This 48-nucleotide sequence from Jannaschia pohangensis belongs to the Rfam family "SAM/SAH riboswitch aptamer". Rfam links the family to the GO terms regulation of gene expression and S-adenosylmethionine metabolic process. A search with the family's covariance model found it, with a score of 41 bits. The base pairs follow the family's consensus structure, which is taken from published work.

RNA sequence: CAACCUCGCCAACGGCUUCCUGACGGCGGGACAUAUCACAUCGGAGCA
Numbered sequence: 001c002a003a004c005c006u007c008g009c010c011a012a013c014g015g016c017u018u019c020c021u022g023a024c025g026g027c028g029g030g031a032c033a034u035a036u037c038a039c040a041u042c043g044g045a046g047c048a
Base pairs, nucleotide, nucleotide: 005030006029007028008027009026010025013022014021015047016046017045019044020043